[Rfam]
RNA: LOOT RNA
RNA sequence: GACCUAAACUCUAAAACCUUUAAUUUUUUUUAGAGCAUGGUUAUAAAUCCUCAGCGAUAAAGAUGGUCUUCUGACCAGUACUUCAUCGCUGAGGUCUGUAUCCGAAAGGGUGUAGGAUAGUUUCGAAAGAAGCUAUC
Numbered sequence: 001g002a003c004c005u006a007a008a009c010u011c012u013a014a015a016a017c018c019u020u021u022a023a024u025u026u027u028u029u030u031u032a033g034a035g036c037a038u039g040g041u042u043a044u045a046a047a048u049c050c051u052c053a054g055c056g057a058u059a060a061a062g063a064u065g066g067u068c069u070u071c072u073g074a075c076c077a078g079u080a081c082u083u084c085a086u087c088g089c090u091g092a093g094g095u096c097u098g099u100a101u102c103c104g105a106a107a108g109g110g111u112g113u114a115g116g117a118u119a120g121u122u123u124c125g126a127a128a129g130a131a132g133c134u135a136u137c
Stems, first nucleotide, its partner, number of pairs: 001042004009035007049094010062081001064077004096115008116137009